Description:
A member of the RNA family "c-di-GMP-I riboswitch aptamer" from Pelosinus fermentans, 86 nucleotides long. Pairs were carried over by alignment from the consensus structure, which is taken from published work. The organism belongs to Pelosinus fermentans, within Bacteria.
RNA sequence: AGAAUAUUUUGGCAAACCAAUUGAAAAGUUGGGACGCAAAGCUAUGGGUCUAAUGACGAGUUGUCUAUGAUUGCCAGGUUGCUAGU
Numbered sequence: 001a002g003a004a005u006a007u008u009u010u011g012g013c014a015a016a017c018c019a020a021u022u023g024a025a026a027a028g029u030u031g032g033g034a035c036g037c038a039a040a041g042c043u044a045u046g047g048g049u050c051u052a053a054u055g056a057c058g059a060g061u062u063g064u065c066u067a068u069g070a071u072u073g074c075c076a077g078g079u080u081g082c083u084a085g086u
Base pairs, nucleotide, nucleotide: 012037013036017032018031019030020029021028022027040080041079042078043077045076046075047074048071049070050069055065056064057063058062